RNA sequence: UAAUUCCUUCGGGGUCGGGUGAAAGUCCCAACCGGCGGUGAUAAGGUUUGCAGCCUUUCAGUCCGUGACCCGUGUGGUGAUUAACAACAGCUCACGGUGGAUUUGGUGGAAAUCCAAAGCCGACAGUAAAGUCUGGAUGGGAGAAGGAACGU
Number, nucleotide and partner (000 for none) at each position: 001u000002a000003a000004u149005u148006c147007c146008u145009u144010c143011g000012g000013g000014g000015u000016c000017g029018g028019g027020u000021g000022a000023a000024a000025g000026u000027c019028c018029c017030a000031a132032c131033c122034g121035g066036c065037g064038g063039u000040g000041a000042u000043a000044a000045g000046g000047u000048u000049u000050g000051c000052a000053g000054c000055c000056u000057u000058u000059c000060a000061g120062u119063c038064c037065g036066u035067g000068a000069c000070c097071c096072g095073u094074g093075u000076g000077g000078u000079g000080a000081u000082u000083a000084a000085c000086a000087a000088c000089a000090g000091c000092u000093c074094a073095c072096g071097g070098u000099g000100g000101a000102u118103u117104u116105g115106g114107u000108g000109g000110a000111a000112a000113u000114c106115c105116a104117a103118a102119g062120c061121c034122g033123a000124c135125a134126g133127u000128a000129a000130a000131g032132u031133c126134u125135g124136g000137a000138u000139g000140g000141g000142a000143g010144a009145a008146g007147g006148a005149a004150c000151g000152u000